Overview
The family of this 95-nucleotide RNA from Pan troglodytes is "mir-569 microRNA precursor family". Lineage of the source: Eukaryota > Vertebrata > Euteleostomi > Dipnotetrapodomorpha > Pan. It is one of the family's seed sequences. A reference for the family is Brameier (2010), "Genome-wide comparative analysis of microRNAs in three non-human primates", BMC Res Notes. The family's consensus secondary structure was predicted with RNAalifold.

[Rfam]
RNA sequence: GGUAUUGUUAGAUUAAUUUUGUGGGACAUUAACGACAGCAUCAGAAGCAACAUCAGCUUUAGUUAAUGAAUCCUGGAAAGUUAAGUGACUUUAUU
Number, nucleotide and partner (000 for none) at each position: 001g000002g094003u093004a092005u000006u000007g089008u088009u087010a086011g000012a000013u084014u083015a082016a081017u080018u079019u078020u077021g000022u075023g074024g073025g072026a071027c068028a067029u066030u065031a064032a063033c062034g000035a000036c000037a058038g057039c056040a000041u000042c000043a000044g000045a000046a000047g000048c000049a000050a000051c000052a000053u000054c000055a000056g039057c038058u037059u000060u000061a000062g033063u032064u031065a030066a029067u028068g027069a000070a000071u026072c025073c024074u023075g022076g000077a020078a019079a018080g017081u016082u015083a014084a013085g000086u010087g009088a008089c007090u000091u000092u004093a003094u002095u000